[Rfam]
RNA sequence: AGAGCAGGCUGCAAUUACAGUGCUCCAUUCUGUGGGAGCACUGCCAUUGUCCUGCUGAGAGCAGCUCUUGUUAGAACUGUCUGCGGUUUCACCUGUACGCUGGGGAAACUGUUUGUUCUUAACAAGUACAUGG
Dot-bracket structure: ..((((((.........(((((((((........))))))))).......))))))..........((((((((.(.......(((((((.((.(....).)).))))))).....).)))))))).......
Notes:
Rfam assigns this 133-nucleotide sequence from Urocolius indicus to the family "Small nucleolar RNA SNORA69". A search with the family's covariance model found it, with a score of 84 bits. The family has 16 seed sequences and 808 matches in Rfam 15.1. U69 is a member of the H/ACA class of small nucleolar RNAs (snoRNAs) which act as guides in the the modification of uridines to pseudouridines. Lineage of the source: Eukaryota > Dinosauria > Aves > Telluraves > Urocolius. The family's RNA type in Rfam is H/ACA-box small nucleolar RNA. Its family is annotated with nucleolus and RNA processing in the Gene Ontology.